[Rfam]
RNA sequence: UGUUAAAGCAUUGCACCCAGAGUCUGGAUCCACCAGACAUCAUACCUGGAGCUUUUGUUUUAAUUAAAGACGUUC
Number, nucleotide and partner (000 for none) at each position: 001u000002g000003u000004u000005a055006a054007a053008g052009c051010a000011u000012u000013g000014c000015a000016c000017c049018c048019a047020g046021a000022g038023u037024c036025u035026g034027g000028a000029u000030c000031c000032a000033c000034c026035a025036g024037a023038c022039a000040u000041c000042a000043u000044a000045c000046c020047u019048g018049g017050a000051g009052c008053u007054u006055u005056u000057g000058u000059u000060u000061u000062a000063a000064u000065u000066a000067a000068a000069g000070a000071c000072g000073u000074u000075c000